[Rfam]
RNA sequence: CCCUUAUCUUUUAAAAGUUUCAAGUUGGUCCCUUAUCUUUUUUUUAGGUUUCAAGUUGGUCUCUUCCGUCAAUUUUUUGACUGUUACAGUUAAAUUUGGACACGUGUCAUCUGUCCAAGUGUGUCAUGUGUCCAAAUUAGUUUGCAACGUGUCCAAAUUUAACGGAAAUAUUUAAAAAUUGACAGAAGGGUCCAACUUGAAACCUAAAAUAAAGAUAAGGGAUCAACUUGAAACUUUUAAAAGAUAAGGGA
Dot-bracket structure: .(((((((..............(((.(((.((((((((((.((.(((............................................................................................................................................................))).)).)))))))))).))).)))..............)))))))..
Numbered sequence: 001c002c003c004u005u006a007u008c009u010u011u012u013a014a015a016a017g018u019u020u021c022a023a024g025u026u027g028g029u030c031c032c033u034u035a036u037c038u039u040u041u042u043u044u045u046a047g048g049u050u051u052c053a054a055g056u057u058g059g060u061c062u063c064u065u066c067c068g069u070c071a072a073u074u075u076u077u078u079g080a081c082u083g084u085u086a087c088a089g090u091u092a093a094a095u096u097u098g099g100a101c102a103c104g105u106g107u108c109a110u111c112u113g114u115c116c117a118a119g120u121g122u123g124u125c126a127u128g129u130g131u132c133c134a135a136a137u138u139a140g141u142u143u144g145c146a147a148c149g150u151g152u153c154c155a156a157a158u159u160u161a162a163c164g165g166a167a168a169u170a171u172u173u174a175a176a177a178a179u180u181g182a183c184a185g186a187a188g189g190g191u192c193c194a195a196c197u198u199g200a201a202a203c204c205u206a207a208a209a210u211a212a213a214g215a216u217a218a219g220g221g222a223u224c225a226a227c228u229u230g231a232a233a234c235u236u237u238u239a240a241a242a243g244a245u246a247a248g249g250g251a
Stems, first nucleotide, its partner, number of pairs: 002249007023228003027224003031220010042209002045206003
Rfam assigns this 251-nucleotide RNA from Trifolium subterraneum to the family "MIR2655 microRNA precursor family".
Its family is annotated with miRNA-mediated post-transcriptional gene silencing and RISC complex in the Gene Ontology.
The family has 25 seed sequences and 892 matches in Rfam 15.1.